RNA sequence: UAAAGUUACAGGUAGGUAGUACGCUGUAUACUUGUGUAACUGAAUUAACGUUUAAGCGAAGUGGAUUCUUCGUCAGUCACAAGGGGGUCGCUUUUAUAAGGCGACCUUAUUUUUUUGG
Numbered sequence: 001u002a003a004a005g006u007u008a009c010a011g012g013u014a015g016g017u018a019g020u021a022c023g024c025u026g027u028a029u030a031c032u033u034g035u036g037u038a039a040c041u042g043a044a045u046u047a048a049c050g051u052u053u054a055a056g057c058g059a060a061g062u063g064g065a066u067u068c069u070u071c072g073u074c075a076g077u078c079a080c081a082a083g084g085g086g087g088u089c090g091c092u093u094u095u096a097u098a099a100g101g102c103g104a105c106c107u108u109a110u111u112u113u114u115u116u117g118g
Base pairs, nucleotide, nucleotide: 007028008027009026010025011024012022013021014020031083032082033081034080035079036078039077040076041075042074043052044051045050056073057072058071059070060069061068084108085107086106087105088104089103090102091101092100093099
About this RNA: The record is a 118-nucleotide RNA, which matches "DUF3800-I RNA" in Rfam. The base pairs follow the family's consensus structure, which is taken from published work. Rfam classes the family as a small RNA. Rfam's curators put it in the seed alignment. Actinobacteria, Firmicutes, Fusobacteria, Proteobacteria (1 example), Tenericutes (2 examples).